[Rfam]
RNA sequence: GCCGAGCUCAUAGCGAGAGCUUGUAACACAAGUGGGGGCAUUAAGGUGGUGCGGAUGCUUAGUGCUGGCUUCUAGGCUUGGGUAUGUGGUGUGCCUUUGCUGGCCUACCGACGGUCCCAAGUUGGUAGUGGUUGGCGGGGGCUCUGGCGAAAGCUUGGGCCUCUCCAAACCCCUGAAGUUGGCAGGAAUGGCGUGAGGCUGGCUUCACAGAGCAGCGAUCACUGCCCGCUUCCAACGGUCGGAGGAUAACAGGCUGCUACAUCACGAACCCAAUUCAGGCCUAGAGCCUCACUACAACAGACCAUCACUUUU
Numbered sequence: 001g002c003c004g005a006g007c008u009c010a011u012a013g014c015g016a017g018a019g020c021u022u023g024u025a026a027c028a029c030a031a032g033u034g035g036g037g038g039c040a041u042u043a044a045g046g047u048g049g050u051g052c053g054g055a056u057g058c059u060u061a062g063u064g065c066u067g068g069c070u071u072c073u074a075g076g077c078u079u080g081g082g083u084a085u086g087u088g089g090u091g092u093g094c095c096u097u098u099g100c101u102g103g104c105c106u107a108c109c110g111a112c113g114g115u116c117c118c119a120a121g122u123u124g125g126u127a128g129u130g131g132u133u134g135g136c137g138g139g140g141g142c143u144c145u146g147g148c149g150a151a152a153g154c155u156u157g158g159g160c161c162u163c164u165c166c167a168a169a170c171c172c173c174u175g176a177a178g179u180u181g182g183c184a185g186g187a188a189u190g191g192c193g194u195g196a197g198g199c200u201g202g203c204u205u206c207a208c209a210g211a212g213c214a215g216c217g218a219u220c221a222c223u224g225c226c227c228g229c230u231u232c233c234a235a236c237g238g239u240c241g242g243a244g245g246a247u248a249a250c251a252g253g254c255u256g257c258u259a260c261a262u263c264a265c266g267a268a269c270c271c272a273a274u275u276c277a278g279g280c281c282u283a284g285a286g287c288c289u290c291a292c293u294a295c296a297a298c299a300g301a302c303c304a305u306c307a308c309u310u311u312u
Base pairs, nucleotide, nucleotide: 001039002038003037004022005021006020007019008018009017027036029034043311044310045309046308047307048306049305050304051303053302056299057298059296062292063291064290067288068287070286071285072284073283074282075281076280077279078278079277080271081270082269083268085266086265087264089263091262092261093260101256102255103254104253105252106251109245115243116242117241119239121236122235123234124233125232127230128229129228130170132168133167134166135165137164138163139162140161141160142159143158144157146155147154148153173178181226182225183224184223185222190219192217193216194215199210200209201208

Shown here is a 312-nucleotide sequence from Miscanthus lutarioriparius, a member of the family "Plant signal recognition particle RNA". The family's RNA type in Rfam is non-coding RNA gene. Its Rfam clan is "SRP clan". The source organism's lineage runs through Eukaryota, Viridiplantae, commelinids, Andropogoneae and Miscanthus.